Annotation:
Glycine riboswitch aptamer: an 85-nucleotide RNA sequence from Nitrobacter hamburgensis. Lineage of the source: Bacteria > Pseudomonadota > Nitrobacteraceae > Nitrobacter > Nitrobacter hamburgensis.

[Rfam]
RNA sequence: UACAUCUGGAAAGAGACCCUGCGGGCCGACAGCCCGGGAGGGUCCGCCGACGGGAUAAUACUCUCAGGCACAGCGACAGAUGGGG
Numbered sequence: 001u002a003c004a005u006c007u008g009g010a011a012a013g014a015g016a017c018c019c020u021g022c023g024g025g026c027c028g029a030c031a032g033c034c035c036g037g038g039a040g041g042g043u044c045c046g047c048c049g050a051c052g053g054g055a056u057a058a059u060a061c062u063c064u065c066a067g068g069c070a071c072a073g074c075g076a077c078a079g080a081u082g083g084g085g
Stems, first nucleotide, its partner, number of pairs: 001084001003082006015044006046069003049065002053063002